[Rfam]
Rfam assigns this 68-nucleotide RNA sequence from Diceros bicornis to the family "MAT2A 3'UTR stem loop E".
Lineage of the source: Eukaryota > Opisthokonta > Bilateria > Amniota > Diceros bicornis.
A reference for the family is Parker et al. (2011), "New families of human regulatory RNA structures identified by comparative analysis of vertebrate genomes", Genome Res.
The base pairs follow the family's consensus structure, which is taken from published work.
RNA sequence: CCAGCAUUCCUGGGUAGGCCAAGGUGUCCUACAUAAUAAAUCUUGGGUGAGAUCUACAGGGGGACUGC
Numbered sequence: 001c002c003a004g005c006a007u008u009c010c011u012g013g014g015u016a017g018g019c020c021a022a023g024g025u026g027u028c029c030u031a032c033a034u035a036a037u038a039a040a041u042c043u044u045g046g047g048u049g050a051g052a053u054c055u056a057c058a059g060g061g062g063g064a065c066u067g068c
Base pairs, nucleotide, nucleotide: 002067003066004065007063008062009061010060011059014057015056016055017054018053019046020045021044022043023042024041025040026032027031